[Rfam]
RNA sequence: UUGACGGUGAACUCCCAGUUGGGCUGGUGGUCCAACAGGUAGCGCUCGCCGAACUUGUCGCCGUCGGCCAGGACGCCCAGGCGGGUGGUCUCACCGUAGGGGCCCUCGGUGGUCUUGUGCACGCGGCCGUGGGCGAUCAGGUAGAGGUGGUCGGCCGGCGAGCCCUCGCGGGCGAGCACGUCGCCGGGCUCGAACUCGCGCUGGGUGAAGCGGCUGGCCAGGGCGUUCAGGACCUCCAUGUCGUCGUAGCCGCGCAGGAGGGACAGUUCGCUCAGCUCCUGGGGGAUGACGCGCACGUCGGAGCCGUUCUGGUUGAAUUCGAUCCUGCCGUCGCCCACGGUAUAGGUGAGUCGCCGGUUGACCCGGUACACGCCGCCGUCGGUCUGCACCCACGGAAGCGUCCUUUGCACCCAGCGGGAACUGAUCCCCUGCAUCUGGGGCGCGGACUUGGUCGUGGUCGCCAGGUUCCGCGCCGCCGCGGUGGCCAGGCUCUGCUGCUCGUCGG
Numbered sequence: 001u002u003g004a005c006g007g008u009g010a011a012c013u014c015c016c017a018g019u020u021g022g023g024c025u026g027g028u029g030g031u032c033c034a035a036c037a038g039g040u041a042g043c044g045c046u047c048g049c050c051g052a053a054c055u056u057g058u059c060g061c062c063g064u065c066g067g068c069c070a071g072g073a074c075g076c077c078c079a080g081g082c083g084g085g086u087g088g089u090c091u092c093a094c095c096g097u098a099g100g101g102g103c104c105c106u107c108g109g110u111g112g113u114c115u116u117g118u119g120c121a122c123g124c125g126g127c128c129g130u131g132g133g134c135g136a137u138c139a140g141g142u143a144g145a146g147g148u149g150g151u152c153g154g155c156c157g158g159c160g161a162g163c164c165c166u167c168g169c170g171g172g173c174g175a176g177c178a179c180g181u182c183g184c185c186g187g188g189c190u191c192g193a194a195c196u197c198g199c200g201c202u203g204g205g206u207g208a209a210g211c212g213g214c215u216g217g218c219c220a221g222g223g224c225g226u227u228c229a230g231g232a233c234c235u236c237c238a239u240g241u242c243g244u245c246g247u248a249g250c251c252g253c254g255c256a257g258g259a260g261g262g263a264c265a266g267u268u269c270g271c272u273c274a275g276c277u278c279c280u281g282g283g284g285g286a287u288g289a290c291g292c293g294c295a296c297g298u299c300g301g302a303g304c305c306g307u308u309c310u311g312g313u314u315g316a317a318u319u320c321g322a323u324c325c326u327g328c329c330g331u332c333g334c335c336c337a338c339g340g341u342a343u344a345g346g347u348g349a350g351u352c353g354c355c356g357g358u359u360g361a362c363c364c365g366g367u368a369c370a371c372g373c374c375g376c377c378g379u380c381g382g383u384c385u386g387c388a389c390c391c392a393c394g395g396a397a398g399c400g401u402c403c404u405u406u407g408c409a410c411c412c413a414g415c416g417g418g419a420a421c422u423g424a425u426c427c428c429c430u431g432c433a434u435c436u437g438g439g440g441c442g443c444g445g446a447c448u449u450g451g452u453c454g455u456g457g458u459c460g461c462c463a464g465g466u467u468c469c470g471c472g473c474c475g476c477c478g479c480g481g482u483g484g485c486c487a488g489g490c491u492c493u494g495c496u497g498c499u500c501g502u503c504g505g
Stems, first nucleotide, its partner, number of pairs: 006390004011385001014382002018328002021325002025322001027320001029318001031316002035313002038310002041307001047303001049301004055232001058229001060227001062225003065111002068108001075103004081097004086093001118221001122217001127212001130209001132206001134203002140197001143196002150191001154189003157185004162177001165174001167172001235295001237293001240290006250282003254278001256277002260271001262269001330341003352378002355375003391431002394428002397425001399423002403418003407415001437476001439474002442471005447465006477504002480499003487496002